[Rfam]
Nucleotides: 074
Base pairs, nucleotide, nucleotide: 001074002073003072004071005070006069
Number, partner (000 for none) and nucleotide at each position: 001074g002073a003072g004071u005070g006069a007000c008000a009000u010000g011000a012000u013000g014000c015000u016000c017000a018000a019000c020000c021000a022000u023000c024000u025000u026000u027000c028000g029000g030000g031000a032000c033000u034000u035000a036000c037000c038000c039000u040000a041000u042000a043000a044000u045000g046000g047000u048000g049000a050000u051000a052000u053000c054000u055000u056000u057000u058000a059000a060000c061000u062000u063000u064000a065000c066000u067000g068000a069006u070005c071004a072003c073002u074001c

The family of this 74-nucleotide RNA from Menidia menidia is "Small nucleolar RNA SNORD2". It scores 61 bits against the family's covariance model. The base pairs follow the family's consensus structure, which was predicted with WAR. A reference for the family is Zhou et al. (2004), "Identification of a novel box C/D snoRNA from mouse nucleolar cDNA library", Gene.